[Rfam]
RNA sequence: UGGGGGAGUCCGGAUUCUGGGCUGUGUCCCGGUGCCCAGUGCUCCCGGGCCUUCGCCGUUGGAUUCCCGCUCCCGGCAGCGCAGCCUGCU
Numbered sequence: 001u002g003g004g005g006g007a008g009u010c011c012g013g014a015u016u017c018u019g020g021g022c023u024g025u026g027u028c029c030c031g032g033u034g035c036c037c038a039g040u041g042c043u044c045c046c047g048g049g050c051c052u053u054c055g056c057c058g059u060u061g062g063a064u065u066c067c068c069g070c071u072c073c074c075g076g077c078a079g080c081g082c083a084g085c086c087u088g089c090u
Base pairs, nucleotide, nucleotide: 002089004087005086006085010081011079013077016076017075019073020072021071023069024068026066027063028062029061030058031057032056033055034054039051041050042049043048
This 90-nucleotide RNA sequence from Canis lupus belongs to the Rfam family "mir-8799 microRNA precursor family". The base pairs follow the family's consensus structure, which was predicted with RNAalifold.